[Rfam]
RNA sequence: CUCUGAUUCCGACCCGACACAACAUUCUGCUGCAAUGUUGUGCGACCUGCAGUGUCGGUCGGAUAUCAGCA
Dot-bracket structure: ..(((((.(((((.......((((((.......))))))....(((.......))).)))))..)))))..

Source information: The record is a 71-nucleotide sequence from Venturia nashicola, which matches "bZIP non canonical Hac1/Xbp1 intron" in Rfam. For this family Rfam cites "Conserved RNA structures in the non-canonical Hac1/Xbp1 intron" (Hooks and Griffiths-Jones, RNA Biol, 2011). bZIP intron RNA is a non-canonical intron that was first reported in HAC1 gene in yeast and XBP1 gene in Metazoa. Taxonomically the source falls in Venturia (Eukaryota, Dikarya, Ascomycota, Dothideomycetes). It is annotated as a small RNA.